[Rfam]
RNA: c-di-AMP riboswitch aptamer (ydaO/yuaA leader)
Organism: Paenibacillus beijingensis
Nucleotides: 225
Stems, first nucleotide, its partner, number of pairs: 011210004018033006034205006044121002122190003130164007167184004
Number, partner (000 for none) and nucleotide at each position: 001000u002000u003000u004000c005000c006000a007000a008000u009000u010000u011210c012209g013208c014207u015000u016000a017000a018033u019032c020031u021030c022029c023028c024000g025000g026000c027000a028023g029022g030021g031020a032019g033018a034205g035204c036203g037202g038201g039200g040000g041000a042000a043000c044121c045120a046000a047000a048000c049000g050000a051000u052000g053000g054000u055000u056000c057000g058000c059000a060000c061000u062000u063000g064000a065000u066000u067000g068000u069000u070000u071000g072000c073000a074000u075000c076000g077000u078000a079000c080000a081000u082000a083000g084000a085000g086000a087000u088000g089000c090000g091000a092000a093000a094000g095000g096000c097000a098000a099000g100000g101000g102000c103000c104000g105000u106000g107000u108000c109000g110000g111000u112000a113000a114000a115000u116000u117000c118000c119000u120045u121044g122190g123189g124188g125000u126000g127000a128000a129000u130164u131163g132162c133161a134160a135159g136158u137000g138000u139000u140000g141000c142000c143000a144000c145000g146000a147000g148000c149000a150000g151000g152000g153000c154000a155000a156000u157000g158136a159135c160134u161133u162132g163131c164130a165000u166000a167184g168183g169182g170181c171000a172000g173000c174000u175000c176000u177000c178000u179000u180000a181170g182169c183168c184167c185000g186000a187000a188124c189123c190122c191000g192000g193000c194000a195000g196000c197000u198000a199000a200039c201038c202037u203036c204035g205034c206000a207014a208013g209012c210011g211000c212000a213000u214000a215000a216000a217000a218000g219000a220000g221000a222000g223000a224000u225000c